[Rfam]
RNA sequence: AUUCCAGUUUAUCCUGCUGGAGAUUGCAGCUAUUUGGUUUGGAUUUAAGCAUGCAAGUCUGACGAAAGUCGGCGUACUGCUCAGCAACACGUAGUUAAUCUGCCCUUAGGUCAGGGAUAUCCUCGGGAAACUGAGGCUAAUACUUGAUAGGAGUUUUGUUCUGGAAUGAUAUUACUCUCAAAUUCGCGCCUAAGGAUGAGACUGCGGCUGAUUAGCUUGUUGGCGGAGUAAAAGCCCACCAAGGCGAUGAUCAGUAAGGGCCCUUAGCGGGGUCGCCCUGAGAAGGAAUCUGAGACACUAUUCCUAGCUCUACGGAGUGCAGCAGCUGCGAAUUUUCUGCAAUGCGCGCAAGCGUGACAGAGCGAACCAAAGUGUUAUCCUUUUUGGAUAACUUUUGUCUGCUGUAAAAAGGCAGAUGAAUAAGGACUGGGCAAGACCGGUGCCAGCCGCCGCGGUAAUCCCGGCAGUCCAAGUUGCAAUCAACUUUAUUG
Numbered sequence: 001a002u003u004c005c006a007g008u009u010u011a012u013c014c015u016g017c018u019g020g021a022g023a024u025u026g027c028a029g030c031u032a033u034u035u036g037g038u039u040u041g042g043a044u045u046u047a048a049g050c051a052u053g054c055a056a057g058u059c060u061g062a063c064g065a066a067a068g069u070c071g072g073c074g075u076a077c078u079g080c081u082c083a084g085c086a087a088c089a090c091g092u093a094g095u096u097a098a099u100c101u102g103c104c105c106u107u108a109g110g111u112c113a114g115g116g117a118u119a120u121c122c123u124c125g126g127g128a129a130a131c132u133g134a135g136g137c138u139a140a141u142a143c144u145u146g147a148u149a150g151g152a153g154u155u156u157u158g159u160u161c162u163g164g165a166a167u168g169a170u171a172u173u174a175c176u177c178u179c180a181a182a183u184u185c186g187c188g189c190c191u192a193a194g195g196a197u198g199a200g201a202c203u204g205c206g207g208c209u210g211a212u213u214a215g216c217u218u219g220u221u222g223g224c225g226g227a228g229u230a231a232a233a234g235c236c237c238a239c240c241a242a243g244g245c246g247a248u249g250a251u252c253a254g255u256a257a258g259g260g261c262c263c264u265u266a267g268c269g270g271g272g273u274c275g276c277c278c279u280g281a282g283a284a285g286g287a288a289u290c291u292g293a294g295a296c297a298c299u300a301u302u303c304c305u306a307g308c309u310c311u312a313c314g315g316a317g318u319g320c321a322g323c324a325g326c327u328g329c330g331a332a333u334u335u336u337c338u339g340c341a342a343u344g345c346g347c348g349c350a351a352g353c354g355u356g357a358c359a360g361a362g363c364g365a366a367c368c369a370a371a372g373u374g375u376u377a378u379c380c381u382u383u384u385u386g387g388a389u390a391a392c393u394u395u396u397g398u399c400u401g402c403u404g405u406a407a408a409a410a411g412g413c414a415g416a417u418g419a420a421u422a423a424g425g426a427c428u429g430g431g432c433a434a435g436a437c438c439g440g441u442g443c444c445a446g447c448c449g450c451c452g453c454g455g456u457a458a459u460c461c462c463g464g465c466a467g468u469c470c471a472a473g474u475u476g477c478a479a480u481c482a483a484c485u486u487u488a489u490u491g
Base pairs, nucleotide, nucleotide: 004020005019006018007017008016022481023480024479025478026477027476028475029474030473031472033371034370035369036368037367038366039365040364041363042329048327049326050325052324053323054322057073058072059071061070062069063068080282081281082280090206091205092204093203094202095201096200099199100198104195105194106193107192108191109190110189112146113145114144115143121136122135123134124133125132126131151177152176153175154174157171158170160169161168208254209253210252215245216244217243220242221241222240223239225237226236257279258278259277260276261272262271263270264269284305285304286303287302288301289300307318308317309316310315335361337360338359339358343356344355345354346353347352374392375391376390377389378388379387380386397417398416399415400414401413402412403411424470425469426468427467428466429465437464438463439462440461446453447452
Dot-bracket structure: ...(((((.......))))).((((((((((.((((((((((.....(((.(((..(((.(((....))))))......(((.......(((((((..((...(((((((.((((.....((((((....))))))......))))....((((..((.((......))))..))))...........)))))))..))))))))).(((....(((..((((.((.........)).)))))))......)))..((((((((....))))...))))))).((((((..........)))))).((((....))))...)))))).).....(.(((...(((((....))))).)))).)))))))))..(((((((.....)))))))....(((((((.......)))))))......((((((.......((((.....((....)).......)))))))))).))))))))))..........
Shown here is a 491-nucleotide part of an RNA from Candidatus Psychracetigena formicireducens, a member of the family "Archaeal small subunit ribosomal RNA". It scores 1294 bits against the family's covariance model. On this family, see Yusupov et al., Science 2001: "Crystal structure of the ribosome at 5.5 A resolution". The family's consensus secondary structure is taken from published work. Clan: SSU clan. The organism belongs to Candidatus Psychracetigena, within Bacteria. Gene Ontology terms of the family: ribosome and structural constituent of ribosome.